Rfam assigns this 65-nucleotide RNA sequence from Mus spicilegus to the family "U7 small nuclear RNA". Pairs were carried over by alignment from the consensus structure, which was predicted with PFOLD. It scores 40 bits against the family's covariance model. The source organism's lineage runs through Eukaryota, Eumetazoa, Rodentia, Myomorpha and Mus. About the family: Animal histone pre-mRNAs are spliced by a different mechanism than nuclear pre-mRNAs and self-splicing introns. This processing involves the U7 snRNP, which contains only one RNA species: U7. The 5' end of U7 RNA is thought to base-pair to a conserved spacer element downstream of the cleavage site in histone pre-mRNA. This family contains a number of annotated U7 pseudogenes.
RNA sequence: GAAUCUUCAUAGCUCUUUUAGAAUCUUUUUCUAAUAGGAUUUCUGUCCUAGGUCAGAAAUCCCAA
Numbered sequence: 001g002a003a004u005c006u007u008c009a010u011a012g013c014u015c016u017u018u019u020a021g022a023a024u025c026u027u028u029u030u031c032u033a034a035u036a037g038g039a040u041u042u043c044u045g046u047c048c049u050a051g052g053u054c055a056g057a058a059a060u061c062c063c064a065a
Stems, first nucleotide, its partner, number of pairs: 037062009047052001